[Rfam]
RNA: Streptomyces sRNA 4677
RNA sequence: GGUUCCGGUGCCGUCGGCGGUCUCCCCCGAGUGAACAUCACCAACUGAGCUGGAUUCGGCACCGGUUGUCCGCCCUACGCUCAGCGCAGCACGGCACGACAACCCCGGACAUACGACGGCCCUCGCAGGGACUGGCAUCCCGUUGCGAGGGCCUGACCACCAAGGAAGUAACAGCCUUCCCG
Numbered sequence: 001g002g003u004u005c006c007g008g009u010g011c012c013g014u015c016g017g018c019g020g021u022c023u024c025c026c027c028c029g030a031g032u033g034a035a036c037a038u039c040a041c042c043a044a045c046u047g048a049g050c051u052g053g054a055u056u057c058g059g060c061a062c063c064g065g066u067u068g069u070c071c072g073c074c075c076u077a078c079g080c081u082c083a084g085c086g087c088a089g090c091a092c093g094g095c096a097c098g099a100c101a102a103c104c105c106c107g108g109a110c111a112u113a114c115g116a117c118g119g120c121c122c123u124c125g126c127a128g129g130g131a132c133u134g135g136c137a138u139c140c141c142g143u144u145g146c147g148a149g150g151g152c153c154u155g156a157c158c159a160c161c162a163a164g165g166a167a168g169u170a171a172c173a174g175c176c177u178u179c180c181c182g
Base pairs, nucleotide, nucleotide: 007161008160009159010158016027017026019024049085050084051083052082053081118153119152120151121150122149124147125146126145128141129140130139131138164180165179166178167177168176